[Rfam]
RNA sequence: AUUUUGUUGUGCCAAACUUGUUGUGAAGCAAGGACGGAAAGCCAUGGGUCUUACACUGUAAAGAUCGCCAGGUUGCCUAA
Numbered sequence: 001a002u003u004u005u006g007u008u009g010u011g012c013c014a015a016a017c018u019u020g021u022u023g024u025g026a027a028g029c030a031a032g033g034a035c036g037g038a039a040a041g042c043c044a045u046g047g048g049u050c051u052u053a054c055a056c057u058g059u060a061a062a063g064a065u066c067g068c069c070a071g072g073u074u075g076c077c078u079a080a
Base pairs, nucleotide, nucleotide: 012037013036017032018031019030020029021028022027040074041073042072043071045070046069047068048065049064050063055059